[Rfam]
RNA sequence: CAACCGCAUAAGAAUUCACUGUAGACAGCCGGUGCCGCAAGGCUUAAUAUCCUGCCGAGGCGAAUGACAAUCAUCAACCGAUGAGCUAUAGUCUUUGCCUUGCAGUUUGAGGCAAAGACUUUUUUUAAUCAAAU
Numbered sequence: 001c002a003a004c005c006g007c008a009u010a011a012g013a014a015u016u017c018a019c020u021g022u023a024g025a026c027a028g029c030c031g032g033u034g035c036c037g038c039a040a041g042g043c044u045u046a047a048u049a050u051c052c053u054g055c056c057g058a059g060g061c062g063a064a065u066g067a068c069a070a071u072c073a074u075c076a077a078c079c080g081a082u083g084a085g086c087u088a089u090a091g092u093c094u095u096u097g098c099c100u101u102g103c104a105g106u107u108u109g110a111g112g113c114a115a116a117g118a119c120u121u122u123u124u125u126u127a128a129u130c131a132a133a134u
Base pairs, nucleotide, nucleotide: 028055029054031052032051034043035042036041091119092118093117094116095115096114097113098112099111100110101109102108